[Rfam]
RNA sequence: ACGGCUGGGCAUUGCCCCCAGUUUCCCCCAAAUUUGGGCAUUGUCCCCGGGUCUUCCAACGGACUGGGCGUUGCCCCGGGACACGGGGGCCUGCCCCCGA
Numbered sequence: 001a002c003g004g005c006u007g008g009g010c011a012u013u014g015c016c017c018c019c020a021g022u023u024u025c026c027c028c029c030a031a032a033u034u035u036g037g038g039c040a041u042u043g044u045c046c047c048c049g050g051g052u053c054u055u056c057c058a059a060c061g062g063a064c065u066g067g068g069c070g071u072u073g074c075c076c077c078g079g080g081a082c083a084c085g086g087g088g089g090c091c092u093g094c095c096c097c098c099g100a
Stems, first nucleotide, its partner, number of pairs: 003023003007017004027038004043064004049057003079098002